A member of the RNA family "MIR159 microRNA precursor family" from Dioscorea zingiberensis, 255 nucleotides long. Lineage of the source: Eukaryota > Embryophyta > Mesangiospermae > Dioscoreaceae > Dioscorea. The family's consensus secondary structure was predicted with WAR. Its family is annotated with RISC complex and miRNA-mediated post-transcriptional gene silencing in the Gene Ontology.
RNA sequence: GAGGGAAAGAGGGAGCCCCCUUCAGUCCAAGCAUGAAAAGAAGAGGAAUGAAUCAUCUCCCGCAUCAUUCUUUCAUUCACACAGUGGCUUUCACAAGUCUUUGACCUUCUGUUCCUCCAUGAAUGAGACUAGAGCCUGAGCUUGUUGAAUGAUCUCUCCAAUGGCCACUGAGUGUUUGAAUGAAUGAGUCGGCAGCCAAUUCAAACCCCAAAACUAUCCAUGAGUGGACUGAAGCAGGCUCACUCACUCCAUCCA
Number, nucleotide and partner (000 for none) at each position: 001g000002a000003g000004g000005g000006a000007a000008a000009g000010a000011g000012g000013g241014a240015g239016c238017c237018c000019c000020c234021u000022u000023c231024a230025g229026u228027c227028c226029a225030a000031g000032c000033a000034u000035g000036a000037a000038a000039a000040g000041a000042a000043g000044a000045g000046g000047a000048a000049u000050g000051a000052a000053u000054c000055a000056u000057c195058u194059c000060c192061c191062g190063c000064a000065u000066c186067a185068u184069u183070c000071u000072u000073u000074c178075a000076u000077u000078c000079a000080c000081a000082c000083a000084g000085u000086g000087g000088c000089u000090u000091u000092c000093a000094c000095a000096a000097g000098u000099c000100u000101u000102u000103g000104a000105c000106c000107u000108u000109c000110u000111g000112u000113u000114c000115c000116u000117c000118c000119a000120u000121g000122a000123a000124u000125g000126a000127g000128a000129c000130u000131a000132g000133a000134g000135c000136c000137u000138g000139a000140g000141c000142u000143u000144g000145u000146u000147g000148a000149a000150u000151g000152a000153u000154c000155u000156c000157u000158c000159c000160a000161a000162u000163g000164g000165c000166c000167a000168c000169u000170g000171a000172g000173u000174g000175u000176u000177u000178g074179a000180a000181u000182g000183a069184a068185u067186g066187a000188g000189u000190c062191g061192g060193c000194a058195g057196c000197c000198a000199a000200u000201u000202c000203a000204a000205a000206c000207c000208c000209c000210a000211a000212a000213a000214c000215u000216a000217u000218c000219c000220a000221u000222g000223a000224g000225u029226g028227g027228a026229c025230u024231g023232a000233a000234g020235c000236a000237g017238g016239c015240u014241c013242a000243c000244u000245c000246a000247c000248u000249c000250c000251a000252u000253c000254c000255a000